[Rfam]
RNA sequence: AUCGGACCCGGCGAGAGACCGGGUGGCUCUUCCGGCCGCCGACCCGCCGGACAACC
Numbered sequence: 001a002u003c004g005g006a007c008c009c010g011g012c013g014a015g016a017g018a019c020c021g022g023g024u025g026g027c028u029c030u031u032c033c034g035g036c037c038g039c040c041g042a043c044c045c046g047c048c049g050g051a052c053a054a055c056c
Stems, first nucleotide, its partner, number of pairs: 006024006012017001031051006
This 56-nucleotide RNA sequence from Kaustia mangrovi belongs to the Rfam family "sul1 RNA". Rfam 15.1 lists 519 matches to the family in 480 species. By type it is a riboswitch. Taxonomically the source falls in Kaustia (Bacteria, Pseudomonadota, Alphaproteobacteria, Hyphomicrobiales). It scores 73 bits against the family's covariance model.